Rfam assigns this 114-nucleotide sequence from Dipodomys ordii to the family "Potassium channel RNA editing signal". By type it is a cis-regulatory element. This family represents a group of sequences related to the human potassium channel Kv1.1 hairpin element which directs the efficient modification of an adenosine to inosine by an adenosine deaminase acting on RNA (ADAR). The base pairs follow the family's consensus structure, which is taken from published work.

RNA sequence: GUGGGGUACGGCGACAUGCACCCGGUGACCAUCGGGGGCAAGAUCGUGGGCUCCCUGUGCGCCAUCGCGGGCGUGCUGACCAUCGCCUUGCCCGUACCCGUGAUCGUCUCCAAC
Numbered sequence: 001g002u003g004g005g006g007u008a009c010g011g012c013g014a015c016a017u018g019c020a021c022c023c024g025g026u027g028a029c030c031a032u033c034g035g036g037g038g039c040a041a042g043a044u045c046g047u048g049g050g051c052u053c054c055c056u057g058u059g060c061g062c063c064a065u066c067g068c069g070g071g072c073g074u075g076c077u078g079a080c081c082a083u084c085g086c087c088u089u090g091c092c093c094g095u096a097c098c099c100g101u102g103a104u105c106g107u108c109u110c111c112a113a114c
Stems, first nucleotide, its partner, number of pairs: 001114002004111002008107004014101002018097001020095002037077004049063003
The match comes from Rfam's covariance-model search (111 bits).